[Rfam]
RNA sequence: AUACUUACCUUAAGAUGCCAGUGGAGAUCAAGAAGUCCACUUGGCCAAGUAUGUCUUCCAACUGCAGGGGGAUGCUAGGCAUUUAGGUAGGGAAAGAGGGAGAAUGACCUGUUUUCUUUGCAUUUGGCAAUUUUUGCCAGUUGUUUGAUUCCAGUUUCUUUCUCUUCUUUUUUUCUCUACACAUCAAUUGAUGUAAGCUCCCCAGUCUACUACCCAUACAAAUAUUAGCGGAAGGUGUUCUUGCUGACGUUUCGUUCCCUUGUUUUCUCUAAUUCUGUCAGGAACCGAUUCGUUCUGGUAAGGAGUUUGGGAGAGUAUUUUCGAAUGCCCUCUCUAUUUUUUUCCGGAGUGUUUAUGGAUCUUGGCAGCUUAUUGAAAACCCUUUUUCCCUUCUGCCUGGAGAAGUAUGGCACCGAUCACAAAUCGGUGCUAGGGGAGUUGGGAUUGUUCUUUUUUUGUGGAAGACUUCUUCGAUUCUGCUUUAUAAAUGAUUUUUCACGACUGAGGAUACGGCGAAGUCUUGAUUUACGAGGCAUUCUUGACUGAUCCGGGUCCGUCUUAUGAUGGAUCCAGGAGGUUCUAAAGUCGCUGCUUUGUUUGUCGCCAUGGCUUUGUUGUUUUCUUCUGUUGCGGAUUUUUGGCGCAGUGUUCGGUGGUUAUUUUACAUUUAUUUGUGGAAUUGCCGUUGGGUGUUGUGCUGAAGUCAUUGAGUCGGAGAACAGUCCAUUAGUUCCAUAAAUUUUUAAUUGUGGAUUCUCUUUGGAUGGGAAAUUCCUCGUUCAAUCCUGAUAGGAACGGGUGGAUCUUAUAAUUUUUGAUUUAUUCC
Numbered sequence: 001a002u003a004c005u006u007a008c009c010u011u012a013a014g015a016u017g018c019c020a021g022u023g024g025a026g027a028u029c030a031a032g033a034a035g036u037c038c039a040c041u042u043g044g045c046c047a048a049g050u051a052u053g054u055c056u057u058c059c060a061a062c063u064g065c066a067g068g069g070g071g072a073u074g075c076u077a078g079g080c081a082u083u084u085a086g087g088u089a090g091g092g093a094a095a096g097a098g099g100g101a102g103a104a105u106g107a108c109c110u111g112u113u114u115u116c117u118u119u120g121c122a123u124u125u126g127g128c129a130a131u132u133u134u135u136g137c138c139a140g141u142u143g144u145u146u147g148a149u150u151c152c153a154g155u156u157u158c159u160u161u162c163u164c165u166u167c168u169u170u171u172u173u174u175c176u177c178u179a180c181a182c183a184u185c186a187a188u189u190g191a192u193g194u195a196a197g198c199u200c201c202c203c204a205g206u207c208u209a210c211u212a213c214c215c216a217u218a219c220a221a222a223u224a225u226u227a228g229c230g231g232a233a234g235g236u237g238u239u240c241u242u243g244c245u246g247a248c249g250u251u252u253c254g255u256u257c258c259c260u261u262g263u264u265u266u267c268u269c270u271a272a273u274u275c276u277g278u279c280a281g282g283a284a285c286c287g288a289u290u291c292g293u294u295c296u297g298g299u300a301a302g303g304a305g306u307u308u309g310g311g312a313g314a315g316u317a318u319u320u321u322c323g324a325a326u327g328c329c330c331u332c333u334c335u336a337u338u339u340u341u342u343u344c345c346g347g348a349g350u351g352u353u354u355a356u357g358g359a360u361c362u363u364g365g366c367a368g369c370u371u372a373u374u375g376a377a378a379a380c381c382c383u384u385u386u387u388c389c390c391u392u393c394u395g396c397c398u399g400g401a402g403a404a405g406u407a408u409g410g411c412a413c414c415g416a417u418c419a420c421a422a423a424u425c426g427g428u429g430c431u432a433g434g435g436g437a438g439u440u441g442g443g444a445u446u447g448u449u450c451u452u453u454u455u456u457u458g459u460g461g462a463a464g465a466c467u468u469c470u471u472c473g474a475u476u477c478u479g480c481u482u483u484a485u486a487a488a489u490g491a492u493u494u495u496u497c498a499c500g501a502c503u504g505a506g507g508a509u510a511c512g513g514c515g516a517a518g519u520c521u522u523g524a525u526u527u528a529c530g531a532g533g534c535a536u537u538c539u540u541g542a543c544u545g546a547u548c549c550g551g552g553u554c555c556g557u558c559u560u561a562u563g564a565u566g567g568a569u570c571c572a573g574g575a576g577g578u579u580c581u582a583a584a585g586u587c588g589c590u591g592c593u594u595u596g597u598u599u600g601u602c603g604c605c606a607u608g609g610c611u612u613u614g615u616u617g618u619u620u621u622c623u624u625c626u627g628u629u630g631c632g633g634a635u636u637u638u639u640g641g642c643g644c645a646g647u648g649u650u651c652g653g654u655g656g657u658u659a660u661u662u663u664a665c666a667u668u669u670a671u672u673u674g675u676g677g678a679a680u681u682g683c684c685g686u687u688g689g690g691u692g693u694u695g696u697g698c699u700g701a702a703g704u705c706a707u708u709g710a711g712u713c714g715g716a717g718a719a720c721a722g723u724c725c726a727u728u729a730g731u732u733c734c735a736u737a738a739a740u741u742u743u744u745a746a747u748u749g750u751g752g753a754u755u756c757u758c759u760u761u762g763g764a765u766g767g768g769a770a771a772u773u774c775c776u777c778g779u780u781c782a783a784u785c786c787u788g789a790u791a792g793g794a795a796c797g798g799g800u801g802g803a804u805c806u807u808a809u810a811a812u813u814u815u816u817g818a819u820u821u822a823u824u825c826c
Base pairs, nucleotide, nucleotide: 010811011810012809013806014805015804017045018044019043020042021041022039023038024037025036046243047242048241049240051238052237053236054235055234056233057232058231059230073224074223248797249796250795251794252793253792256437257436258435259434260433261432262380263379264378265377266376267375390405391404392403393402394401410430411429412428413427414426415425416424604767605766606765
This 826-nucleotide sequence from Huiozyma naganishii belongs to the Rfam family "Yeast U1 spliceosomal RNA". Lineage of the source: Eukaryota > Opisthokonta > Ascomycota > Saccharomycetales > Huiozyma naganishii. By type it is a spliceosomal small nuclear RNA. A search with the family's covariance model found it, with a score of 166 bits.